The family of this 188-nucleotide RNA from Paraburkholderia caballeronis is "Burkholderia sRNA Bp2_Cand287_SIPHT". The base pairs follow the family's consensus structure, which was predicted with RNAalifold. The organism belongs to Paraburkholderia, within Bacteria.
RNA sequence: AAAAAGCCCGCUUUGCGUCGGCAGAAGCGGGCUUUGGUGGAUUCGGGUUACCGGUCAGCGGUGAGCGUCGGGCGUCGUUUGCUGCACUUCGGCGCCGGUCGCUUUAGCUGUUUUGGGUUGCCCCGCGUCCGCAAGCUGAGAUCAAAUCGACGCAAGCCCGUAUCCUAUCACGGGAUCGCGGCCCGCAC
Numbered sequence: 001a002a003a004a005a006g007c008c009c010g011c012u013u014u015g016c017g018u019c020g021g022c023a024g025a026a027g028c029g030g031g032c033u034u035u036g037g038u039g040g041a042u043u044c045g046g047g048u049u050a051c052c053g054g055u056c057a058g059c060g061g062u063g064a065g066c067g068u069c070g071g072g073c074g075u076c077g078u079u080u081g082c083u084g085c086a087c088u089u090c091g092g093c094g095c096c097g098g099u100c101g102c103u104u105u106a107g108c109u110g111u112u113u114u115g116g117g118u119u120g121c122c123c124c125g126c127g128u129c130c131g132c133a134a135g136c137u138g139a140g141a142u143c144a145a146a147u148c149g150a151c152g153c154a155a156g157c158c159c160g161u162a163u164c165c166u167a168u169c170a171c172g173g174g175a176u177c178g179c180g181g182c183c184c185g186c187a188c
Base pairs, nucleotide, nucleotide: 004034005033006032007031008030009029010028011027012026014023015022016021038154039153044152045151053103054102057099061095063093104139105138106137107136108135109134115124116123117122125132126131171185172184173183174182
Dot-bracket structure: ...(((((((((.(((....)))..)))))))))...((....((.......((..(...(.(.............................).)...)..))((((((.....(((....)))((....)).))))))...........))))................((((.......))))...
A search with the family's covariance model found it, with a score of 112 bits. The family's RNA type in Rfam is small RNA. For this family Rfam cites "Computational discovery and RT-PCR validation of novel Burkholderia conserved and Burkholderia pseudomallei unique sRNAs" (Khoo et al., BMC Genomics, 2012).